[Rfam]
RNA sequence: UUGCGCAAGUGAUGUUUUGCUGAGCAAUCUUAGCAAUCCAUUGCCAGUCCUACAGGCCUAUUCUUUUCAACAGAAUCACUGCCCGGACAUAGCGUCCAGUGCGGCUCGCCCAAUCAGGCCAGCUGCGGCCAGCCAUCCCACAGGGUGGACCAGGCCCCCGGGCUACAUACUGUCCAGAAGACGGCAUGAGGUGAGCCGGCGUCAAAAGCGUCGAGCCAGGACGAAGUAUCCCAAGGGGGCCGUUUGGCCCCCU
Numbered sequence: 001u002u003g004c005g006c007a008a009g010u011g012a013u014g015u016u017u018u019g020c021u022g023a024g025c026a027a028u029c030u031u032a033g034c035a036a037u038c039c040a041u042u043g044c045c046a047g048u049c050c051u052a053c054a055g056g057c058c059u060a061u062u063c064u065u066u067u068c069a070a071c072a073g074a075a076u077c078a079c080u081g082c083c084c085g086g087a088c089a090u091a092g093c094g095u096c097c098a099g100u101g102c103g104g105c106u107c108g109c110c111c112a113a114u115c116a117g118g119c120c121a122g123c124u125g126c127g128g129c130c131a132g133c134c135a136u137c138c139c140a141c142a143g144g145g146u147g148g149a150c151c152a153g154g155c156c157c158c159c160g161g162g163c164u165a166c167a168u169a170c171u172g173u174c175c176a177g178a179a180g181a182c183g184g185c186a187u188g189a190g191g192u193g194a195g196c197c198g199g200c201g202u203c204a205a206a207a208g209c210g211u212c213g214a215g216c217c218a219g220g221a222c223g224a225a226g227u228a229u230c231c232c233a234a235g236g237g238g239g240c241c242g243u244u245u246g247g248c249c250c251c252c253u
Stems, first nucleotide, its partner, number of pairs: 001012004043057003076194005081163004085097004101126005108119003127156004134147005166188003170184005195216002197213006234253008